[Rfam]
RNA sequence: GGGGAUAUAAUGGUCUCGACAUAUUAUGUUCUCUUAUUAUUGCAGUAGUUUGGUAGACUAUAAUACUUCUAGACUUUUUUAAACGGAAACGAUAAAAAAGAAACAAGCGUUAACCCAAUGGUUUUCGCUUACAACAAUGCAAAUCUAGCUUUCGCUUAAUAGCAAACCUAGUGGCUUAUAGAAAUUCCUUGGUUCUAUAAGUUGGUCUAAAGGAUAGCAUAAGUGUUGACAAACUUAUGUGAAAUUUGUCACACAUUACAAAACUUUUUCGUUUGCUUUAGUUUUGUAAUGUUACAAAAAGCAAAAUAAACUGUAGAUGUAAUAAGUUGCGAUGUAGUGUGGACAGGGGUUCGAUUCCCCUUAUCUCCACCA
Numbered sequence: 001g002g003g004g005a006u007a008u009a010a011u012g013g014u015c016u017c018g019a020c021a022u023a024u025u026a027u028g029u030u031c032u033c034u035u036a037u038u039a040u041u042g043c044a045g046u047a048g049u050u051u052g053g054u055a056g057a058c059u060a061u062a063a064u065a066c067u068u069c070u071a072g073a074c075u076u077u078u079u080u081a082a083a084c085g086g087a088a089a090c091g092a093u094a095a096a097a098a099a100g101a102a103a104c105a106a107g108c109g110u111u112a113a114c115c116c117a118a119u120g121g122u123u124u125u126c127g128c129u130u131a132c133a134a135c136a137a138u139g140c141a142a143a144u145c146u147a148g149c150u151u152u153c154g155c156u157u158a159a160u161a162g163c164a165a166a167c168c169u170a171g172u173g174g175c176u177u178a179u180a181g182a183a184a185u186u187c188c189u190u191g192g193u194u195c196u197a198u199a200a201g202u203u204g205g206u207c208u209a210a211a212g213g214a215u216a217g218c219a220u221a222a223g224u225g226u227u228g229a230c231a232a233a234c235u236u237a238u239g240u241g242a243a244a245u246u247u248g249u250c251a252c253a254c255a256u257u258a259c260a261a262a263a264c265u266u267u268u269u270c271g272u273u274u275g276c277u278u279u280a281g282u283u284u285u286g287u288a289a290u291g292u293u294a295c296a297a298a299a300a301g302c303a304a305a306a307u308a309a310a311c312u313g314u315a316g317a318u319g320u321a322a323u324a325a326g327u328u329g330c331g332a333u334g335u336a337g338u339g340u341g342g343a344c345a346g347g348g349g350u351u352c353g354a355u356u357c358c359c360c361u362u363a364u365c366u367c368c369a370c371c372a
Stems, first nucleotide, its partner, number of pairs: 001368007020341010033326008043313004050072004055067001145171004150166003174202010186214005218239007226231001228247002253292013267306003279301001345361005